[Rfam]
The record is a 335-nucleotide part of an RNA from Companilactobacillus allii, which matches "Bacterial large subunit ribosomal RNA" in Rfam. A search with the family's covariance model found it, with a score of 2930 bits.
RNA sequence: CGAGUGAACUCUCGUUAAGGAACUCGGCAAAAUGACCCCGUAACUUCGGGAGAAGGGGUGCUGGUGUAACAGCCAGCCGCAGUGAAUAGGCCCAAACAACUGUUUAUCAAAAACACAGGUCUAUGCUAAAUCGUAAGAUGACGUAUAUGGGCUGACGCCUGCCCGGUGCUGGAAGGUUAAGAGGAUCAGUUAGCGUAAGCGAAGCUGAGAAUUGAAGCCCCAGUAAACGGCGGCCGUAACUAUAACGGUCCUAAGGUAGCGAAAUUCCUUGUCGGGUAAGUUCCGACCCGCACGAAAGGCGUAAUGAUUUGGGCACUGUCUCAACGAGAGACUCG
Numbered sequence: 001c002g003a004g005u006g007a008a009c010u011c012u013c014g015u016u017a018a019g020g021a022a023c024u025c026g027g028c029a030a031a032a033u034g035a036c037c038c039c040g041u042a043a044c045u046u047c048g049g050g051a052g053a054a055g056g057g058g059u060g061c062u063g064g065u066g067u068a069a070c071a072g073c074c075a076g077c078c079g080c081a082g083u084g085a086a087u088a089g090g091c092c093c094a095a096a097c098a099a100c101u102g103u104u105u106a107u108c109a110a111a112a113a114c115a116c117a118g119g120u121c122u123a124u125g126c127u128a129a130a131u132c133g134u135a136a137g138a139u140g141a142c143g144u145a146u147a148u149g150g151g152c153u154g155a156c157g158c159c160u161g162c163c164c165g166g167u168g169c170u171g172g173a174a175g176g177u178u179a180a181g182a183g184g185a186u187c188a189g190u191u192a193g194c195g196u197a198a199g200c201g202a203a204g205c206u207g208a209g210a211a212u213u214g215a216a217g218c219c220c221c222a223g224u225a226a227a228c229g230g231c232g233g234c235c236g237u238a239a240c241u242a243u244a245a246c247g248g249u250c251c252u253a254a255g256g257u258a259g260c261g262a263a264a265u266u267c268c269u270u271g272u273c274g275g276g277u278a279a280g281u282u283c284c285g286a287c288c289c290g291c292a293c294g295a296a297a298g299g300c301g302u303a304a305u306g307a308u309u310u311g312g313g314c315a316c317u318g319u320c321u322c323a324a325c326g327a328g329a330g331a332c333u334c335g
Base pairs, nucleotide, nucleotide: 001335002334003333004332009330010329011328012327013326014325015324016323018321019320020319035059036058037057038056039055044049060077061076062075063074064073065072078082090314091313092312093311094310095309096308097306098305101115102114103113118153119152120151121150122149123148124147125146126143130139131138132137156301157300158299159298161231162230163229166228167227168224169223170222171221172220175219176218177217181213182212186208187207188206189205190204193200194199232250233249234248235247236246237245251255261288271287272286273285274284275283276282

Its family is annotated with ribosome and structural constituent of ribosome in the Gene Ontology.